[Rfam]
RNA: TPP riboswitch aptamer (THI element)
Organism: Kroppenstedtia eburnea
RNA sequence: AUUUGAGUACAGGGGUGCCAACCGGCUGAGAGGGAUCCUGCCCAACCCUUUGAACCUGAUCCGGAUCAUACCGGCGAAGGGAGUACAGGCUGAUUUGGU
Number, nucleotide and partner (000 for none) at each position: 001a000002u000003u000004u000005g000006a000007g086008u085009a084010c083011a049012g048013g047014g046015g000016u000017g026018c025019c024020a000021a000022c000023c000024g019025g018026c017027u000028g000029a000030g000031a000032g000033g042034g041035a000036u040037c000038c000039u000040g036041c034042c033043c000044a000045a000046c014047c013048c012049u011050u000051u000052g000053a000054a000055c080056c079057u078058g000059a000060u000061c074062c073063g072064g071065a000066u000067c000068a000069u000070a000071c064072c063073g062074g061075c000076g000077a000078a057079g056080g055081g000082a000083g010084u009085a008086c007087a000088g000089g000090c000091u000092g000093a000094u000095u000096u000097g000098g000099u000